The record is a 93-nucleotide RNA from Cephalotus follicularis, which matches "Small nucleolar RNA snoR26" in Rfam.
RNA sequence: GAAGCAUCGGUGAUGAGAGAACCCAAAAUGUUAUCUUUGCACUUUGAUUGCUAGUGAAGAAACUUAUGGAGAAUAGAUAUCUAUGAGAUGCAC
Numbered sequence: 001g002a003a004g005c006a007u008c009g010g011u012g013a014u015g016a017g018a019g020a021a022c023c024c025a026a027a028a029u030g031u032u033a034u035c036u037u038u039g040c041a042c043u044u045u046g047a048u049u050g051c052u053a054g055u056g057a058a059g060a061a062a063c064u065u066a067u068g069g070a071g072a073a074u075a076g077a078u079a080u081c082u083a084u085g086a087g088a089u090g091c092a093c
Stems, first nucleotide, its partner, number of pairs: 004091005
The source organism's lineage runs through Eukaryota, Streptophytina, Tracheophyta, eudicotyledons and Cephalotus.
A reference for the family is Brown et al. (2001), "Multiple snoRNA gene clusters from Arabidopsis", RNA.
The base pairs follow the family's consensus structure, which was predicted with WAR.